This 129-nucleotide sequence from Crotophaga sulcirostris belongs to the Rfam family "Small Cajal body specific RNA 4". Pairs were carried over by alignment from the consensus structure, which was predicted with RNAfold. Rfam classes the family as a small Cajal body RNA. The literature on the family includes a 2002 paper in EMBO J by Darzacq et al., "Cajal body-specific small nuclear RNAs: a novel class of 2'-O-methylation and pseudouridylation guide RNAs". Gene Ontology terms of the family: Cajal body, RNA processing and nucleolus. It scores 90 bits against the family's covariance model. From the family's description: scaRNAs are a specific class of small nuclear RNAs which localise to the Cajal bodies and guide the modification of RNA polymerase II transcribed spliceosomal RNAs U1, U2, U4, U5 and U12. ACA26 belongs to the H/ACA box class of guide RNAs as it has the predicted hairpin-hinge-hairpin-tail structure, conserved H/ACA-box motifs and is found associated with GAR1. The source organism's lineage runs through Eukaryota, Metazoa, Dinosauria, Saurischia and Crotophaga.
RNA sequence: GCUGGAGGACUUGUCAGUCUGAGUCUGAAGAGUGAGACUUUGAUAACAACAGCCUCCUAAAAGAACAGGGAUGGAGAGAGCAGUCCUGCUUACAGAAGAGCACAGGACCGACUGUGCCAUCCGACACUG
Numbered sequence: 001g002c003u004g005g006a007g008g009a010c011u012u013g014u015c016a017g018u019c020u021g022a023g024u025c026u027g028a029a030g031a032g033u034g035a036g037a038c039u040u041u042g043a044u045a046a047c048a049a050c051a052g053c054c055u056c057c058u059a060a061a062a063g064a065a066c067a068g069g070g071a072u073g074g075a076g077a078g079a080g081c082a083g084u085c086c087u088g089c090u091u092a093c094a095g096a097a098g099a100g101c102a103c104a105g106g107a108c109c110g111a112c113u114g115u116g117c118c119a120u121c122c123g124a125c126a127c128u129g
Base pairs, nucleotide, nucleotide: 003059004057005056006055007054008053017044018043019042021040022039023038024037025036026035068122069121070120079113080112081110083108084107085106086105087104091102093100